[Rfam]
RNA sequence: UAACGUUAGUCGGGGUGCGGCACAGCCGCUGAGAUGAUACCCGUUGAACCUGAUACAGCUAAUACUGGCGUAGGAAACUAAUCUUUUCACUAU
Numbered sequence: 001u002a003a004c005g006u007u008a009g010u011c012g013g014g015g016u017g018c019g020g021c022a023c024a025g026c027c028g029c030u031g032a033g034a035u036g037a038u039a040c041c042c043g044u045u046g047a048a049c050c051u052g053a054u055a056c057a058g059c060u061a062a063u064a065c066u067g068g069c070g071u072a073g074g075a076a077a078c079u080a081a082u083c084u085u086u087u088c089a090c091u092a093u
Base pairs, nucleotide, nucleotide: 006081007080008079009078010077011043012042013041014040016037017029018028019027020026021025049074050073051072052071056067057066058065
Notes:
Shown here is a 93-nucleotide RNA sequence from Mesocricetibacter intestinalis, a member of the family "TPP riboswitch aptamer (THI element)". Lineage of the source: Bacteria > Gammaproteobacteria > Pasteurellales > Pasteurellaceae > Mesocricetibacter. Pairs were carried over by alignment from the consensus structure, which is taken from published work.